[Rfam]
RNA sequence: UGGGGGAGCUGAAUUAGAGAUCGGCACCCUGUCAUUCUUAUAUCACUGGAGUUGAAAAUGUCUCUAAGCGUUGAAGCUAAAGCAAAAAUCGUUUCCGAGUUUGGUCGUGGUUCU
Numbered sequence: 001u002g003g004g005g006g007a008g009c010u011g012a013a014u015u016a017g018a019g020a021u022c023g024g025c026a027c028c029c030u031g032u033c034a035u036u037c038u039u040a041u042a043u044c045a046c047u048g049g050a051g052u053u054g055a056a057a058a059u060g061u062c063u064c065u066a067a068g069c070g071u072u073g074a075a076g077c078u079a080a081a082g083c084a085a086a087a088a089u090c091g092u093u094u095c096c097g098a099g100u101u102u103g104g105u106c107g108u109g110g111u112u113c114u
Base pairs, nucleotide, nucleotide: 008025009024010023011022012021047066048065049064050063051062